[Rfam]
EcpR1: a 105-nucleotide RNA sequence from Pseudorhizobium banfieldiae. Lineage of the source: Bacteria > Pseudomonadota > Hyphomicrobiales > Rhizobiaceae > Pseudorhizobium. Pairs were carried over by alignment from the consensus structure, which was predicted with WAR.

RNA sequence: AUACCCCAUGAUGCUCAGGUCCGCCGCAUCUCCUGGGUCGUGGGGUCGGUCGAUCGAUUGCAUGUCUCGGUUCCUCGUGCCGUAUUGCAGUCGGUCGACCCCCAA
Numbered sequence: 001a002u003a004c005c006c007c008a009u010g011a012u013g014c015u016c017a018g019g020u021c022c023g024c025c026g027c028a029u030c031u032c033c034u035g036g037g038u039c040g041u042g043g044g045g046u047c048g049g050u051c052g053a054u055c056g057a058u059u060g061c062a063u064g065u066c067u068c069g070g071u072u073c074c075u076c077g078u079g080c081c082g083u084a085u086u087g088c089a090g091u092c093g094g095u096c097g098a099c100c101c102c103c104a105a
Base pairs, nucleotide, nucleotide: 003046004045005044006043007042008041009040010039014037015036016035017034018033019032048100049099050098051097052096053095054094055093056092057091058090
Rfam classes the family as a small RNA. It scores 89 bits against the family's covariance model. From the family's description: Perviously named SmelC291, SmrC10, or Sra33. According to its overproduction phenotype it was renamed Elongated Cell Phenotype RNA1. Induced by stress,EcpR1 negatively regulates cell cycle master regulatory genes dnaA and gcrA at post-transcriptional level by base pairing between its strongly conserved GC-rich loop and the target mRNAs. It's regulation is hfq-independent but requires RNase E to regulate dnaA. On this family, see Wilms et al., RNA Biol 2012: "Deep sequencing uncovers numerous small RNAs on all four replicons of the plant pathogen Agrobacterium tumefaciens".